[Rfam]
A member of the RNA family "Manganese Mn2+ riboswitch aptamer (yybP-ykoY)" from Silvimonas terrae, 220 nucleotides long.
The source organism's lineage runs through Bacteria, Pseudomonadati, Betaproteobacteria, Chitinibacteraceae and Silvimonas.

RNA sequence: UCCGUUGUCAUUGGGGAGUAGCUAUCUUCCUGCAGGCUCUGGCCUGCCAGAGAAGAGAUCACGUCAACAAACUUGAAGCCCCCGCUUCAUGGCGUGAUUAGUGACCGGAUCCUUCAUCCGGUUGCCCGGCGAGACCUUUGGCCACGAUGCGCUUUGCCACGCCGGGCAAGCCGUAUCGUUGCGCCAUUGGUUUAUCUUGCUUGCCCGGCCUGCGUUGCUC
Numbered sequence: 001u002c003c004g005u006u007g008u009c010a011u012u013g014g015g016g017a018g019u020a021g022c023u024a025u026c027u028u029c030c031u032g033c034a035g036g037c038u039c040u041g042g043c044c045u046g047c048c049a050g051a052g053a054a055g056a057g058a059u060c061a062c063g064u065c066a067a068c069a070a071a072c073u074u075g076a077a078g079c080c081c082c083c084g085c086u087u088c089a090u091g092g093c094g095u096g097a098u099u100a101g102u103g104a105c106c107g108g109a110u111c112c113u114u115c116a117u118c119c120g121g122u123u124g125c126c127c128g129g130c131g132a133g134a135c136c137u138u139u140g141g142c143c144a145c146g147a148u149g150c151g152c153u154u155u156g157c158c159a160c161g162c163c164g165g166g167c168a169a170g171c172c173g174u175a176u177c178g179u180u181g182c183g184c185c186a187u188u189g190g191u192u193u194a195u196c197u198u199g200c201u202u203g204c205c206c207g208g209c210c211u212g213c214g215u216u217g218c219u220c
Stems, first nucleotide, its partner, number of pairs: 025056005057099010074089005100219006